[Rfam]
RNA: MIR9772 microRNA precursor family
Organism: Aegilops tauschii
RNA sequence: CAGCGGCCGUUGAGAUGAGAUUACCCCAUACCCUGUAGCGGCAGCUCGACUCCGUGCACGCGUAGGGGGCAAUCUCACCUCAACAGCUGCUC
Numbered sequence: 001c002a003g004c005g006g007c008c009g010u011u012g013a014g015a016u017g018a019g020a021u022u023a024c025c026c027c028a029u030a031c032c033c034u035g036u037a038g039c040g041g042c043a044g045c046u047c048g049a050c051u052c053c054g055u056g057c058a059c060g061c062g063u064a065g066g067g068g069g070c071a072a073u074c075u076c077a078c079c080u081c082a083a084c085a086g087c088u089g090c091u092c
Stems, first nucleotide, its partner, number of pairs: 002091002005088003009084006016077007024069004029064003038055004043051002